Rfam assigns this 86-nucleotide RNA sequence from Anolis carolinensis to the family "mir-449 microRNA precursor family". Its Rfam clan is "mir-34 clan". Lineage of the source: Eukaryota > Euteleostomi > Unidentata > Iguania > Anolis. Rfam's curators put it in the seed alignment. The base pairs follow the family's consensus structure, which was predicted with RNAalifold.

[Rfam]
RNA sequence: UGUGUGGUGGAAUGGCAGUGUAUUGUUAGCUGGAUGAGUAUCUCAAUGCCCCCAGCUGACAUUCAGCUGCCAAUCUACGGCACAUA
Numbered sequence: 001u002g003u004g005u006g007g008u009g010g011a012a013u014g015g016c017a018g019u020g021u022a023u024u025g026u027u028a029g030c031u032g033g034a035u036g037a038g039u040a041u042c043u044c045a046a047u048g049c050c051c052c053c054a055g056c057u058g059a060c061a062u063u064c065a066g067c068u069g070c071c072a073a074u075c076u077a078c079g080g081c082a083c084a085u086a
Base pairs, nucleotide, nucleotide: 001084002083003082004081005080007078008077009076010075011074013072014071015070016069017068018067019066020064022062025060026059027058028057029056030055031054032053033052039048040047041046